[Rfam]
RNA sequence: UCCUCAUUCCUCAUACUAUCUCACCGGUCAGAGAGGCGAGAGAGUACGCGAAAUGAAGAGA
Numbered sequence: 001u002c003c004u005c006a007u008u009c010c011u012c013a014u015a016c017u018a019u020c021u022c023a024c025c026g027g028u029c030a031g032a033g034a035g036g037c038g039a040g041a042g043a044g045u046a047c048g049c050g051a052a053a054u055g056a057a058g059a060g061a
Base pairs, nucleotide, nucleotide: 001059002058004056005055006054007053010050012048014046015045016044017043019041020040021039022038

This 61-nucleotide RNA from Pristionchus pacificus belongs to the Rfam family "mir-8364 microRNA precursor family".
Its family is annotated with RISC complex and miRNA-mediated post-transcriptional gene silencing in the Gene Ontology.
Pairs were carried over by alignment from the consensus structure, which was predicted with RNAalifold.